[Rfam]
RNA sequence: UAACUUACCUGGCACAGAGGAUACCGUGAUCAAUAAGGCGGUUCCUUCACAUGGAGGCUUGGCAUUGCACUCAGCUGGGCUGAAGUGUGCGAUCUCCCCAAACGUGGGAGACUCGGGUGCGCAAUUUUUGGUAGGGGGGGACUGCGUUCGCGCGUCCCCCA
Numbered sequence: 001u002a003a004c005u006u007a008c009c010u011g012g013c014a015c016a017g018a019g020g021a022u023a024c025c026g027u028g029a030u031c032a033a034u035a036a037g038g039c040g041g042u043u044c045c046u047u048c049a050c051a052u053g054g055a056g057g058c059u060u061g062g063c064a065u066u067g068c069a070c071u072c073a074g075c076u077g078g079g080c081u082g083a084a085g086u087g088u089g090c091g092a093u094c095u096c097c098c099c100a101a102a103c104g105u106g107g108g109a110g111a112c113u114c115g116g117g118u119g120c121g122c123a124a125u126u127u128u129u130g131g132u133a134g135g136g137g138g139g140g141a142c143u144g145c146g147u148u149c150g151c152g153c154g155u156c157c158c159c160c161a
Stems, first nucleotide, its partner, number of pairs: 012120004017047005023042005049088004056081003060077004090115003093111003097107002136160005143154004